[Rfam]
The record is a 119-nucleotide sequence from Elainella sp. C42_A2020_010, which matches "TPP riboswitch aptamer (THI element)" in Rfam. It scores 66 bits against the family's covariance model. The family's consensus secondary structure is taken from published work.
Nucleotides: 119
Stems, first nucleotide, its partner, number of pairs: 006107001008105003011068004016062001017054005074100003081094004
Number, partner (000 for none) and nucleotide at each position: 001000c002000a003000g004000c005000u006107a007000a008105g009104c010103u011068a012067g013066g014065g015000g016062u017054g018053c019052c020051u021050g022000a023000u024000u025000u026000u027000u028000c029000u030000g031000g032000u033000c034000a035000c036000a037000a038000g039000g040000c041000a042000g043000g044000g045000c046000g047000a048000u049000u050021c051020a052019g053018g054017c055000u056000g057000a058000g059000a060000u061000u062016a063000c064000a065014c066013c067012c068011u069000u070000a071000g072000a073000a074100c075099c076098u077000g078000a079000g080000u081094c082093u083092g084091g085000g086000u087000a088000a089000u090000g091084c092083c093082a094081g095000c096000g097000g098076a099075g100074g101000g102000a103010a104009g105008c106000g107006u108000u109000g110000a111000u112000u113000c114000g115000u116000a117000u118000c119000a